[Rfam]
RNA sequence: GGAGGCAAGUGGAGGAGUGGUCUCCUCUCUUUGCCAGACAAAAGUGAGAUUCAACUCCUCCAACUUCUCGCC
Dot-bracket structure: ......((((((((..((....((.((.(((..........))).))))....).).))))).)))......
RNA: mir-1175 microRNA precursor family